[Rfam]
RNA sequence: AGUGUUAUUGAUUGUUAAACUCAACACUACAAUAAUACCGAGUAAAACUACCUGUUGAAAGGGCAGGCCUCAACCUUCGGGUUGUCUUCGGACACGGAGGAUCCCCGCUUUUCAGGUGUACUCAAAUCCUGUCGUCAGGAGUUUAAAUAAUCCACCUGGUGUGGCUCCCAUU
Numbered sequence: 001a002g003u004g005u006u007a008u009u010g011a012u013u014g015u016u017a018a019a020c021u022c023a024a025c026a027c028u029a030c031a032a033u034a035a036u037a038c039c040g041a042g043u044a045a046a047a048c049u050a051c052c053u054g055u056u057g058a059a060a061g062g063g064c065a066g067g068c069c070u071c072a073a074c075c076u077u078c079g080g081g082u083u084g085u086c087u088u089c090g091g092a093c094a095c096g097g098a099g100g101a102u103c104c105c106c107g108c109u110u111u112u113c114a115g116g117u118g119u120a121c122u123c124a125a126a127u128c129c130u131g132u133c134g135u136c137a138g139g140a141g142u143u144u145a146a147a148u149a150a151u152c153c154a155c156c157u158g159g160u161g162u163g164g165c166u167c168c169c170a171u172u
Stems, first nucleotide, its partner, number of pairs: 047119002051116004057110002061106002068100004073082003084093003

Annotation
This 172-nucleotide RNA from Marinilabilia rubra belongs to the Rfam family "Bacteroidales-1 6S-Bacteroidales RNA suggested". It scores 84 bits against the family's covariance model. Taxonomically the source falls in Marinilabilia (Bacteria, Bacteroidota, Marinilabiliales, Marinilabiliaceae). From the family's description: Bacteroidales-1 was first reported in a comparative genomics-based approach of genome and metagenome sequences from Weinberg et al. 2010 In a high-resolution transcriptome map study of Bacteroides thetaiotaomicron, Ryan et al. 2020 report this sRNA as 6S RNA homologue of Bacteroides, in the study they obtain evidence of small product RNAs (pRNAs) related to 6S function. The family's RNA type in Rfam is small RNA.